[Rfam]
RNA sequence: GGUUGAUCCAAAGGUAAUGAGUUAUCAAUUCACAGUCACAGAUCAAACUCCUUGUUCUACUCUUUCCUCCCUUUUCACUAUUGCAUGUGGCUAGUCUUCA
Numbered sequence: 001g002g003u004u005g006a007u008c009c010a011a012a013g014g015u016a017a018u019g020a021g022u023u024a025u026c027a028a029u030u031c032a033c034a035g036u037c038a039c040a041g042a043u044c045a046a047a048c049u050c051c052u053u054g055u056u057c058u059a060c061u062c063u064u065u066c067c068u069c070c071c072u073u074u075u076c077a078c079u080a081u082u083g084c085a086u087g088u089g090g091c092u093a094g095u096c097u098u099c100a
Stems, first nucleotide, its partner, number of pairs: 001096005007090002010088001014084002016079001018077004034058002
The record is a 100-nucleotide RNA sequence from Gorilla gorilla, which matches "Y RNA" in Rfam. The base pairs follow the family's consensus structure, which is taken from published work. The source organism's lineage runs through Eukaryota, Eumetazoa, Chordata, Simiiformes and Gorilla gorilla. From the family's description: Y RNAs are components of the Ro ribonucleoprotein particle (Ro RNP), in association with Ro60 and La proteins. Rfam classes the family as a non-coding RNA gene. For this family Rfam cites "5'-YRNA fragments derived by processing of transcripts from specific YRNA genes and pseudogenes are abundant in human serum and plasma" (Dhahbi et al., Physiol Genomics, 2013).